A member of the RNA family "Burkholderia RNA 7 (anti-hemB)" from Caballeronia novacaledonica, 82 nucleotides long. The organism belongs to Caballeronia, within Bacteria. Rfam links the family to the GO terms protein binding and bacterial biofilm matrix. The family has 26 seed sequences and 479 matches in Rfam 15.1. Pairs were carried over by alignment from the consensus structure, which is taken from published work. Rfam describes the family as follows. This RNA motif was identified by computational search in b-proteobacteria Burkholderia. Co-purified with Hfq, expression confirmed by Northern blot. By type it is a small RNA.
RNA sequence: UCCCCGCUUCUCCUCCCUGAGCGGGUGCCUGUCGAUGUUCGAUUAGGCUGUUAACCCGCCGUCAUGCGGCGGGUUUUUUUCA
Numbered sequence: 001u002c003c004c005c006g007c008u009u010c011u012c013c014u015c016c017c018u019g020a021g022c023g024g025g026u027g028c029c030u031g032u033c034g035a036u037g038u039u040c041g042a043u044u045a046g047g048c049u050g051u052u053a054a055c056c057c058g059c060c061g062u063c064a065u066g067c068g069g070c071g072g073g074u075u076u077u078u079u080u081c082a
Base pairs, nucleotide, nucleotide: 003025004024005023006022007021008020027048028047029046030045032042033041034040054074055073056072057071058070059069060068061067